[Rfam]
RNA sequence: UAUAAGUGGAGGUAAGAUACCACUAAAAACGGGGCGAAAUCGAAAAGCCAAACGAGUAUGAUAAAC
Numbered sequence: 001u002a003u004a005a006g007u008g009g010a011g012g013u014a015a016g017a018u019a020c021c022a023c024u025a026a027a028a029a030c031g032g033g034g035c036g037a038a039a040u041c042g043a044a045a046a047g048c049c050a051a052a053c054g055a056g057u058a059u060g061a062u063a064a065a066c
Stems, first nucleotide, its partner, number of pairs: 006023004033049003040060001

Notes
Rfam assigns this 66-nucleotide sequence from Flavobacterium sp. CS20 to the family "DUF805 RNA". It scores 72 bits against the family's covariance model. Clan: DUF805 clan. It is annotated as a cis-regulatory element.